TPP riboswitch aptamer (THI element): a 109-nucleotide RNA from Paenibacillus sp. MY03. From the family's description: Vitamin B(1) in its active form thiamin pyrophosphate (TPP) is an essential coenzyme that is synthesised by coupling of pyrimidine and thiazole moieties in bacteria. Taxonomically the source falls in Paenibacillus (Bacteria, Bacillati, Caryophanales, Paenibacillaceae).
RNA sequence: GAAUAUGCUCCGGGGAGCUGGUUAGGCCGGCUGAGAGGGAAUGACAACAUUCCGACCCGUAUACCUGAUCCGGAUAAUGCCGGCGUAGGAACGUGAAGCGAGCGCUUCU
Dot-bracket structure: .....(.(.(((((..(((((.....)))))......(((((......)))))..))))....((((..((((......))))..))))...).).)............